[Rfam]
RNA sequence: CCCGCAGGAUAGUGCGUAUACGCUUUAGUGUUUCAUUCUAUACCAAUAAGGGAAAAGUGGGCAGUUGGUUUAAGCUUUUAUAUGCUUUCUUUAACAAUCACUUUAUUCUCAGCU
Dot-bracket structure: ...(.(.((....(((....)))........).).).)...........(((.(((((((...((((........................))))..))))))).)))......

The family of this 114-nucleotide RNA sequence from Triticum aestivum is "small nucleolar RNA snoR135". The base pairs follow the family's consensus structure, which was predicted with RNAalifold. The organism belongs to Triticum, within Eukaryota. Rfam links the family to the GO terms nucleolus and RNA processing. For this family Rfam cites "Mining small RNA sequencing data: a new approach to identify small nucleolar RNAs in Arabidopsis" (Chen and Wu, Nucleic Acids Res, 2009).